RNA sequence: CUCAUCACAACAAACCCAGAUCUGUGUCCAGCAGUCCUGAUCCAACCAGAGUAUUCGUGCUCUGGUUGUGUUUCGGUUGUUAUUGCUGGACAGCUCGACGAUUCAUGGAGCCAUCAAGGAUUACCCCUCAAAUGGUGUCAAUUUCCGGUCGACAGAUCUCAGAGAGAACCUCAGCGGCCCAGUUUUUCCUUUUUUGCCUUGUGUGAAAGGGAAUUUAACACUCUGCCUUGAGCUCCCUCCCCGUUUCGACGGGCUGGUGAAUUCGGUAAGGUGGCUGGGUUCC
Numbered sequence: 001c002u003c004a005u006c007a008c009a010a011c012a013a014a015c016c017c018a019g020a021u022c023u024g025u026g027u028c029c030a031g032c033a034g035u036c037c038u039g040a041u042c043c044a045a046c047c048a049g050a051g052u053a054u055u056c057g058u059g060c061u062c063u064g065g066u067u068g069u070g071u072u073u074c075g076g077u078u079g080u081u082a083u084u085g086c087u088g089g090a091c092a093g094c095u096c097g098a099c100g101a102u103u104c105a106u107g108g109a110g111c112c113a114u115c116a117a118g119g120a121u122u123a124c125c126c127c128u129c130a131a132a133u134g135g136u137g138u139c140a141a142u143u144u145c146c147g148g149u150c151g152a153c154a155g156a157u158c159u160c161a162g163a164g165a166g167a168a169c170c171u172c173a174g175c176g177g178c179c180c181a182g183u184u185u186u187u188c189c190u191u192u193u194u195u196g197c198c199u200u201g202u203g204u205g206a207a208a209g210g211g212a213a214u215u216u217a218a219c220a221c222u223c224u225g226c227c228u229u230g231a232g233c234u235c236c237c238u239c240c241c242c243g244u245u246u247c248g249a250c251g252g253g254c255u256g257g258u259g260a261a262u263u264c265g266g267u268a269a270g271g272u273g274g275c276u277g278g279g280u281u282c283c
Stems, first nucleotide, its partner, number of pairs: 018159008026091006033084003036079001037076004042070001044067006051060003099151005106140003110136005172225002177219001186212004192208006231276003235271002238268001241266003248258001250256002
RNA: A. fumigatus sRNA Afu_309